Description
Rfam assigns this 122-nucleotide sequence from Natronobacillus azotifigens to the family "Ribosomal protein L20 leader". The organism belongs to Natronobacillus, within Bacteria. About the family: This family is a putative r-protein leader autoregulatory structure found in B. subtilis and other low-GC Gram-positive bacteria. It scores 62 bits against the family's covariance model.
RNA sequence: AUCGACAAGUAGAGGCACCCGCUUCUCGCCUGUUCGACACAUGUAAUGUAGUUGCCAGGUUACUGAUUCUGAUUAAUUUUGGAUACGUGUGGGUGCAAUUGUACCGACACUUUUUUCUAUGG
Numbered sequence: 001a002u003c004g005a006c007a008a009g010u011a012g013a014g015g016c017a018c019c020c021g022c023u024u025c026u027c028g029c030c031u032g033u034u035c036g037a038c039a040c041a042u043g044u045a046a047u048g049u050a051g052u053u054g055c056c057a058g059g060u061u062a063c064u065g066a067u068u069c070u071g072a073u074u075a076a077u078u079u080u081g082g083a084u085a086c087g088u089g090u091g092g093g094u095g096c097a098a099u100u101g102u103a104c105c106g107a108c109a110c111u112u113u114u115u116u117c118u119a120u121g122g
Stems, first nucleotide, its partner, number of pairs: 011026006028060003036053003039049002088109003092105005